[Rfam]
RNA sequence: CACACACAGGUUUGCGGAGAGAGAGUCUCUUCGCUCCGGUGCAGGGUUUGACCUGCAACGCCUGUGGAGGAAUAACCGGAGAAAGGAAAAAGA
Numbered sequence: 001c002a003c004a005c006a007c008a009g010g011u012u013u014g015c016g017g018a019g020a021g022a023g024a025g026u027c028u029c030u031u032c033g034c035u036c037c038g039g040u041g042c043a044g045g046g047u048u049u050g051a052c053c054u055g056c057a058a059c060g061c062c063u064g065u066g067g068a069g070g071a072a073u074a075a076c077c078g079g080a081g082a083a084a085g086g087a088a089a090a091a092g093a
Base pairs, nucleotide, nucleotide: 001069003067005066006065007064008063009062010061014034015033023031025029041056042055043054044053045052047051
RNA: rpsB sRNA
Organism: Caedimonas varicaedens